[Rfam]
RNA sequence: AAGUGGAGUGAUGAAAUUUUCACCUUAGGUGGAUGCAACAGACCGUUUUGGUUGUUUACUGUAUCUGCCGAUGUUGGGGUCUGUCAUAGUUACACUGACCACGU
Numbered sequence: 001a002a003g004u005g006g007a008g009u010g011a012u013g014a015a016a017u018u019u020u021c022a023c024c025u026u027a028g029g030u031g032g033a034u035g036c037a038a039c040a041g042a043c044c045g046u047u048u049u050g051g052u053u054g055u056u057u058a059c060u061g062u063a064u065c066u067g068c069c070g071a072u073g074u075u076g077g078g079g080u081c082u083g084u085c086a087u088a089g090u091u092a093c094a095c096u097g098a099c100c101a102c103g104u
Stems, first nucleotide, its partner, number of pairs: 001104001003102004
The record is a 104-nucleotide RNA sequence from Chauna torquata, which matches "Small nucleolar RNA SNORD46" in Rfam. Rfam classes the family as a C/D-box small nucleolar RNA. The match comes from Rfam's covariance-model search (48 bits). Rfam's curators write: U40 is a C/D box small nucleolar RNA, also known as snoZ153 in plants. The human sequence has also been annotated in the sequence databases as U46. The literature on the family includes a 2003 paper in Nucleic Acids Res by Chen et al., "The high diversity of snoRNAs in plants: identification and comparative study of 120 snoRNA genes from Oryza sativa".